[Rfam]
This 170-nucleotide sequence from Syntrophomonas zehnderi belongs to the Rfam family "glmS glucosamine-6-phosphate activated ribozyme aptamer". Lineage of the source: Bacteria > Eubacteriales > Syntrophomonadaceae > Syntrophomonas > Syntrophomonas zehnderi. The family's consensus secondary structure is taken from published work. Its family is annotated with regulation of gene expression and catalytic activity in the Gene Ontology. A reference for the family is Winkler et al. (2004), "Control of gene expression by a natural metabolite-responsive ribozyme", Nature. The match comes from Rfam's covariance-model search (102 bits).
RNA sequence: ACUCAGUUUUAAGCGCCUGACCCGGUAUUAGAUUAGAUUAUGCGUCAUAAUGCCGGGUGACGAGGAGGGGGUUUAUCGAAUCUCGGCGGAUGCCCCCCGGUUGCCACAAUCGUAAAUAUGGUUACAAAACGUAUAGCAAUAUACCAACAAAAAGCCAUAUGCGUGGAACC
Numbered sequence: 001a002c003u004c005a006g007u008u009u010u011a012a013g014c015g016c017c018u019g020a021c022c023c024g025g026u027a028u029u030a031g032a033u034u035a036g037a038u039u040a041u042g043c044g045u046c047a048u049a050a051u052g053c054c055g056g057g058u059g060a061c062g063a064g065g066a067g068g069g070g071g072u073u074u075a076u077c078g079a080a081u082c083u084c085g086g087c088g089g090a091u092g093c094c095c096c097c098c099g100g101u102u103g104c105c106a107c108a109a110u111c112g113u114a115a116a117u118a119u120g121g122u123u124a125c126a127a128a129a130c131g132u133a134u135a136g137c138a139a140u141a142u143a144c145c146a147a148c149a150a151a152a153a154g155c156c157a158u159a160u161g162c163g164u165g166g167a168a169c170c
Base pairs, nucleotide, nucleotide: 020058021057022056023055024054025053026052027051029049067097068096069095070094071093076086077085078084079083098112099111100110101109102108103107116160117159118158119157120156121155122154131144132143133142134141135140